This 73-nucleotide sequence from Jeotgalibaca dankookensis belongs to the Rfam family "tRNA". A search with the family's covariance model found it, with a score of 57 bits. It is annotated as a transfer RNA. Rfam describes the family as follows. Transfer RNA (tRNA) molecules are approximately 80 nucleotides in length.
[Rfam]
RNA sequence: GCGAUUGUGGCGAAGGGGUUAACGCACCGGUUUGUGGAUCCGGCAUUCGUGGGUUCAAGUCCCAUCAGUCGCC
Numbered sequence: 001g002c003g004a005u006u007g008u009g010g011c012g013a014a015g016g017g018g019u020u021a022a023c024g025c026a027c028c029g030g031u032u033u034g035u036g037g038a039u040c041c042g043g044c045a046u047u048c049g050u051g052g053g054u055u056c057a058a059g060u061c062c063c064a065u066c067a068g069u070c071g072c073c
Stems, first nucleotide, its partner, number of pairs: 001072007010025003027043004049065005